A member of the RNA family "Bacterial antisense RNA HPnc0260" from Campylobacter pinnipediorum, 130 nucleotides long. It scores 76 bits against the family's covariance model. The organism belongs to Campylobacter pinnipediorum, within Bacteria. Pairs were carried over by alignment from the consensus structure, which was predicted with CMfinder. For this family Rfam cites "The primary transcriptome of the major human pathogen Helicobacter pylori" (Sharma et al., Nature, 2010).
RNA sequence: AAUGUAAAAAGAUACAAUUAAAACAAAUACUGAUUUUAUAGGGUUUUGUGAGUAAAAAUAAAAGAAAGUAAGUAAUGGAAAAAUUAUUAAAUGGUGGCUCCGAAUGGACUUGAACCAUCGACCACUACCA
Numbered sequence: 001a002a003u004g005u006a007a008a009a010a011g012a013u014a015c016a017a018u019u020a021a022a023a024c025a026a027a028u029a030c031u032g033a034u035u036u037u038a039u040a041g042g043g044u045u046u047u048g049u050g051a052g053u054a055a056a057a058a059u060a061a062a063a064g065a066a067a068g069u070a071a072g073u074a075a076u077g078g079a080a081a082a083a084u085u086a087u088u089a090a091a092u093g094g095u096g097g098c099u100c101c102g103a104a105u106g107g108a109c110u111u112g113a114a115c116c117a118u119c120g121a122c123c124a125c126u127a128c129c130a
Stems, first nucleotide, its partner, number of pairs: 013029002046056002092127006101120002104118004